[Rfam]
RNA sequence: AGAAAUUGCAUAGACCAUCCUCAUAUAAGACGGGAAUAGGGCCCGUUCGUCUCUACCUGGAAACCGUAAAUUUCCGGACUAUGAGGAGAGUGCGCGCAUGU
Numbered sequence: 001a002g003a004a005a006u007u008g009c010a011u012a013g014a015c016c017a018u019c020c021u022c023a024u025a026u027a028a029g030a031c032g033g034g035a036a037u038a039g040g041g042c043c044c045g046u047u048c049g050u051c052u053c054u055a056c057c058u059g060g061a062a063a064c065c066g067u068a069a070a071u072u073u074c075c076g077g078a079c080u081a082u083g084a085g086g087a088g089a090g091u092g093c094g095c096g097c098a099u100g101u
Base pairs, nucleotide, nucleotide: 018087019086020085021084022083023082024081025080029047030046031045032044033043034042057077058076059075060074061073062072063071

The family of this 101-nucleotide RNA from Halobacillus yeomjeoni is "Purine riboswitch aptamer".
Its family is annotated with purine nucleobase biosynthetic process in the Gene Ontology.
Rfam's curators write: Riboswitches are metabolite binding domains within certain messenger RNAs that serve as precision sensors for their corresponding targets.
Taxonomically the source falls in Halobacillus (Bacteria, Bacillati, Bacillota, Bacilli).
A reference for the family is Mandal et al. (2003), "Riboswitches Control Fundamental Biochemical Pathways in Bacillus subtilis and Other Bacteria", Cell.
The match comes from Rfam's covariance-model search (79 bits).